[Rfam]
RNA sequence: UUUUCAUCUGUGAGGGUGUUUCCUCUAAACCUACAAGGAGGAACACCUGAUCUUCCAGAAAA
Numbered sequence: 001u002u003u004u005c006a007u008c009u010g011u012g013a014g015g016g017u018g019u020u021u022c023c024u025c026u027a028a029a030c031c032u033a034c035a036a037g038g039a040g041g042a043a044c045a046c047c048u049g050a051u052c053u054u055c056c057a058g059a060a061a062a
Base pairs, nucleotide, nucleotide: 001062002061003060004059005058015047016046017045018044019043020042021041022040024038030037